[Rfam]
RNA: Streptomyces RNA 1601
Organism: Streptomyces sp. SAJ15
RNA sequence: CACGACCGGCUGGACACCUGUACCAGCCCACAAGUGGAGGCUCCGAUCUCCCACCCAGUCGACCAGCGGUCGGCGGGUCACCGGUCAUGUUGCGCCCCGUGGAAUACGCACGGUGGUGCUCCCGGUUGUAUGGAGCCCCGCCUGUGUCCCGUCCGGGGCGUUUUUC
Numbered sequence: 001c002a003c004g005a006c007c008g009g010c011u012g013g014a015c016a017c018c019u020g021u022a023c024c025a026g027c028c029c030a031c032a033a034g035u036g037g038a039g040g041c042u043c044c045g046a047u048c049u050c051c052c053a054c055c056c057a058g059u060c061g062a063c064c065a066g067c068g069g070u071c072g073g074c075g076g077g078u079c080a081c082c083g084g085u086c087a088u089g090u091u092g093c094g095c096c097c098c099g100u101g102g103a104a105u106a107c108g109c110a111c112g113g114u115g116g117u118g119c120u121c122c123c124g125g126u127u128g129u130a131u132g133g134a135g136c137c138c139c140g141c142c143u144g145u146g147u148c149c150c151g152u153c154c155g156g157g158g159c160g161u162u163u164u165u166c
Stems, first nucleotide, its partner, number of pairs: 004086006012024002026078004034054004038049002058074007094159006100151003109146003112142005118136005